U11 spliceosomal RNA: a 136-nucleotide RNA sequence from Rhizopus stolonifer. The family's consensus secondary structure is taken from published work. Rfam classes the family as a spliceosomal small nuclear RNA.
RNA sequence: AAAAAGGGCGCGCCACAAUGUUUACUUGUAAACAAAAUGUGGCAAGAGUCUUGAUUCACUCUUGCGGUAUGGCAAUCAAGACAUAUCGAGCGCAUAAUUUUUUGAUGCGGCAGUUCACUAUAUUGGCUUCGCUUAA
Number, nucleotide and partner (000 for none) at each position: 001a000002a000003a000004a000005a000006g000007g000008g093009c092010g091011c090012g000013c042014c041015a040016c039017a038018a000019u000020g000021u000022u000023u000024a000025c000026u000027u000028g000029u000030a000031a000032a000033c000034a000035a000036a000037a000038u017039g016040u015041g014042g013043c064044a063045a062046g061047a060048g059049u058050c000051u000052u000053g000054a000055u000056u000057c000058a049059c048060u047061c046062u045063u044064g043065c088066g087067g086068u085069a084070u083071g082072g000073c000074a000075a000076u000077c000078a000079a000080g000081a000082c071083a070084u069085a068086u067087c066088g065089a000090g011091c010092g009093c008094a000095u000096a000097a000098u000099u000100u000101u000102u000103u000104g000105a134106u000107g132108c131109g000110g130111c000112a128113g127114u126115u000116c125117a124118c000119u000120a000121u000122a000123u000124u117125g116126g114127c113128u112129u000130c110131g108132c107133u000134u105135a000136a000